The family of this 265-nucleotide sequence is "raiA RNA". Rfam's curators put it in the seed alignment.

RNA sequence: CUUAUCUAGGUUUGUGGUUGCGGAAAUGCAUGAGUUCAUCUGGGGCAUUUCUUAGUCCAAGGCAGACGAGGUCAAAAGGAUCCACGUAAAUACAUGUGUGUGCAUAUGUAUGAGCAUGGCUCGUCCUAGGGGUUAGUCAUACCGUCUGUUGAUUUCAAGGCAUACGGCCUUGCAGACGAGAGAGCUUACAGUAUGGGUACUGCGGUAUACCAGCGAAGGCUCCAGUAUGCGAGUGUGGGGUCAAAUACCAGGUCAACUAGGUAAG
Numbered sequence: 001c002u003u004a005u006c007u008a009g010g011u012u013u014g015u016g017g018u019u020g021c022g023g024a025a026a027u028g029c030a031u032g033a034g035u036u037c038a039u040c041u042g043g044g045g046c047a048u049u050u051c052u053u054a055g056u057c058c059a060a061g062g063c064a065g066a067c068g069a070g071g072u073c074a075a076a077a078g079g080a081u082c083c084a085c086g087u088a089a090a091u092a093c094a095u096g097u098g099u100g101u102g103c104a105u106a107u108g109u110a111u112g113a114g115c116a117u118g119g120c121u122c123g124u125c126c127u128a129g130g131g132g133u134u135a136g137u138c139a140u141a142c143c144g145u146c147u148g149u150u151g152a153u154u155u156c157a158a159g160g161c162a163u164a165c166g167g168c169c170u171u172g173c174a175g176a177c178g179a180g181a182g183a184g185c186u187u188a189c190a191g192u193a194u195g196g197g198u199a200c201u202g203c204g205g206u207a208u209a210c211c212a213g214c215g216a217a218g219g220c221u222c223c224a225g226u227a228u229g230c231g232a233g234u235g236u237g238g239g240g241u242c243a244a245a246u247a248c249c250a251g252g253u254c255a256a257c258u259a260g261g262u263a264a265g
Stems, first nucleotide, its partner, number of pairs: 001265009012256003015250004059236001061234001062072001065125006081119002089111001117243001138229005143178007182222004191214002198207003